[Rfam]
RNA: Small nucleolar RNA snoR60
RNA sequence: UAGCAAAUGAUGAGCUUUACUUGGAUUCCCCUUCAGAUCAUCAUGGAUGAUGCAAACUCCAAGUUUCUGAUGCU
Numbered sequence: 001u002a003g004c005a006a007a008u009g010a011u012g013a014g015c016u017u018u019a020c021u022u023g024g025a026u027u028c029c030c031c032u033u034c035a036g037a038u039c040a041u042c043a044u045g046g047a048u049g050a051u052g053c054a055a056a057c058u059c060c061a062a063g064u065u066u067c068u069g070a071u072g073c074u
Base pairs, nucleotide, nucleotide: 002074003073004072005071